[Rfam]
RNA: Glycine riboswitch aptamer
RNA sequence: AAGAAGAGUUCGGGAGAUACUGCAACAAGUGCAUCUAUCGAAGGUAGAUAGAUUUUUUGUGAGGCAGAGCCGAAGGUGAAGACGCAACAAACUCUCAGGCAAAAGGACCGAAUUUGGACG
Numbered sequence: 001a002a003g004a005a006g007a008g009u010u011c012g013g014g015a016g017a018u019a020c021u022g023c024a025a026c027a028a029g030u031g032c033a034u035c036u037a038u039c040g041a042a043g044g045u046a047g048a049u050a051g052a053u054u055u056u057u058u059g060u061g062a063g064g065c066a067g068a069g070c071c072g073a074a075g076g077u078g079a080a081g082a083c084g085c086a087a088c089a090a091a092c093u094c095u096c097a098g099g100c101a102a103a104a105g106g107a108c109c110g111a112a113u114u115u116g117g118a119c120g
Base pairs, nucleotide, nucleotide: 006115007114008113009112010111011110012109013108020067021066022065023064069100070099071098072096073095076094078092